[Rfam]
RNA: c-di-GMP-I riboswitch aptamer
RNA sequence: AAGAGAUAAAGGCAAACUUGGUGAAAACCAAGGACGCAAAGCUAGAGGGGCUACUCGAGAGAUUCGAAUGCCAGCCAGUUUCCGCU
Numbered sequence: 001a002a003g004a005g006a007u008a009a010a011g012g013c014a015a016a017c018u019u020g021g022u023g024a025a026a027a028c029c030a031a032g033g034a035c036g037c038a039a040a041g042c043u044a045g046a047g048g049g050g051c052u053a054c055u056c057g058a059g060a061g062a063u064u065c066g067a068a069u070g071c072c073a074g075c076c077a078g079u080u081u082c083c084g085c086u
Stems, first nucleotide, its partner, number of pairs: 012037002017032006040080004047076002049072003056066004
Dot-bracket structure: ...........((...((((((....))))))...))..((((...(((((....((((...))))...)))..))))))......